[Rfam]
RNA sequence: UCCAGCAGUAGUCAGCCAUCUGGACAGAACCAUUCCUGGAAUGGUGUUACACUGCUGGGAGAGGAAUGUCUUCUCUUUAUCCGGUUGCCUCCAUCACUGUUCUGGUGGUGUCUGGCACUGGUGCAAGGCAGGACUGUGCUUCCUUGAGCGUGUGCUGAGCAUUCUCCUUGGCUGCUUGGUUCUAGUCUGGGAGCAGACCCA
Numbered sequence: 001u002c003c004a005g006c007a008g009u010a011g012u013c014a015g016c017c018a019u020c021u022g023g024a025c026a027g028a029a030c031c032a033u034u035c036c037u038g039g040a041a042u043g044g045u046g047u048u049a050c051a052c053u054g055c056u057g058g059g060a061g062a063g064g065a066a067u068g069u070c071u072u073c074u075c076u077u078u079a080u081c082c083g084g085u086u087g088c089c090u091c092c093a094u095c096a097c098u099g100u101u102c103u104g105g106u107g108g109u110g111u112c113u114g115g116c117a118c119u120g121g122u123g124c125a126a127g128g129c130a131g132g133a134c135u136g137u138g139c140u141u142c143c144u145u146g147a148g149c150g151u152g153u154g155c156u157g158a159g160c161a162u163u164c165u166c167c168u169u170g171g172c173u174g175c176u177u178g179g180u181u182c183u184a185g186u187c188u189g190g191g192a193g194c195a196g197a198c199c200c201a
Base pairs, nucleotide, nucleotide: 001059002058003057004056005055006054007053008052009051011050012049015045016044017043018042019041020038022036023035024034068134069133070132071131072130074128075127076126082123083122085120086117087116088115089114092110093109094108095107096106097105098104137195138194139193140192141191142190143189152182154180156178157177158176159175160174161173
Shown here is a 201-nucleotide RNA sequence from Macaca nemestrina, a member of the family "Small nucleolar RNA SNORA74". U19 belongs to the H/ACA class of snoRNAs. snoRNAs bind a number of proteins (including dyskerin, Gar1p and Nop10p in the case of the H/ACA class) to form snoRNP complexes. This class are thought to guide the sites of modification of uridines to pseudouridines by forming direct base pairing interactions with substrate RNAs. Targets may include ribosomal and spliceosomal RNAs but the exact functions of many snoRNAs, including U19, are not confirmed. Co-precipitation of U19 snoRNA with RNase MRP RNA suggests that U19 may be involved in pre-rRNA processing. Its family is annotated with RNA processing and nucleolus in the Gene Ontology. The family's RNA type in Rfam is H/ACA-box small nucleolar RNA. A reference for the family is Ganot et al. (1997), "The family of box ACA small nucleolar RNAs is defined by an evolutionarily conserved secondary structure and ubiquitous sequence elements essential for RNA accumulation", Genes Dev. The base pairs follow the family's consensus structure, which was predicted with PFOLD.